The family of this 90-nucleotide sequence from Drosophila virilis is "mir-306 microRNA precursor family". The literature on the family includes a 2003 paper in Dev Cell by Aravin et al., "The small RNA profile during Drosophila melanogaster development". Pairs were carried over by alignment from the consensus structure, which was predicted with RNAalifold. Lineage of the source: Eukaryota > Metazoa > Drosophilidae > Drosophilini > Drosophila. Rfam links the family to the GO terms RISC complex and miRNA-mediated post-transcriptional gene silencing.

RNA sequence: GCACACCCCGCUGCUCAGGUACUUAGUGACUCUCAAUCAUCUAUUGCUUUGCAUACCUUGAGGGUCGCUCUGUGCCUGUGCCGCCUGUGC
Numbered sequence: 001g002c003a004c005a006c007c008c009c010g011c012u013g014c015u016c017a018g019g020u021a022c023u024u025a026g027u028g029a030c031u032c033u034c035a036a037u038c039a040u041c042u043a044u045u046g047c048u049u050u051g052c053a054u055a056c057c058u059u060g061a062g063g064g065u066c067g068c069u070c071u072g073u074g075c076c077u078g079u080g081c082c083g084c085c086u087g088u089g090c
Stems, first nucleotide, its partner, number of pairs: 001090005011083001013081002016078007025069011036054002